[Rfam]
RNA sequence: CGAUGCCUCUGGAAAGUGGUGGGCCCACCGGGCACGGCGGCCGUCCACCCGCCCAUGGGGAAAGGCGCUCGCGCCGAAUCUCUCAGGCACCGACGACAGAGGGAGAGGA
Numbered sequence: 001c002g003a004u005g006c007c008u009c010u011g012g013a014a015a016g017u018g019g020u021g022g023g024c025c026c027a028c029c030g031g032g033c034a035c036g037g038c039g040g041c042c043g044u045c046c047a048c049c050c051g052c053c054c055a056u057g058g059g060g061a062a063a064g065g066c067g068c069u070c071g072c073g074c075c076g077a078a079u080c081u082c083u084c085a086g087g088c089a090c091c092g093a094c095g096a097c098a099g100a101g102g103g104a105g106a107g108g109a
Base pairs, nucleotide, nucleotide: 004104006102007101008100009099010098011097018049019048020047021046022045023044024043051088052087053086055083058082059081060080064075065074
RNA: Glycine riboswitch aptamer